[Rfam]
RNA sequence: CGAUGGAGUUGACAACGAGAGAGAGCACGCUGGUCGGCGCUCAUGGAAGAUGGGGGUCCGCGGCUGCUUACUUGCGUGCUUCCCCUCGUUGUCACCCCUUC
Numbered sequence: 001c002g003a004u005g006g007a008g009u010u011g012a013c014a015a016c017g018a019g020a021g022a023g024a025g026c027a028c029g030c031u032g033g034u035c036g037g038c039g040c041u042c043a044u045g046g047a048a049g050a051u052g053g054g055g056g057u058c059c060g061c062g063g064c065u066g067c068u069u070a071c072u073u074g075c076g077u078g079c080u081u082c083c084c085c086u087c088g089u090u091g092u093c094a095c096c097c098c099u100u101c
Base pairs, nucleotide, nucleotide: 010094011093012092013091014090016088017087021083023081025079026078027077028076029075030074032072033071034070

The family of this 101-nucleotide sequence from Asparagus officinalis is "MIR535 microRNA precursor family". The base pairs follow the family's consensus structure, which was predicted with RNAalifold. Rfam links the family to the GO terms RISC complex and miRNA-mediated post-transcriptional gene silencing. A reference for the family is Zeng et al. (2010), "Conservation and divergence of microRNAs and their functions in Euphorbiaceous plants", Nucleic Acids Res.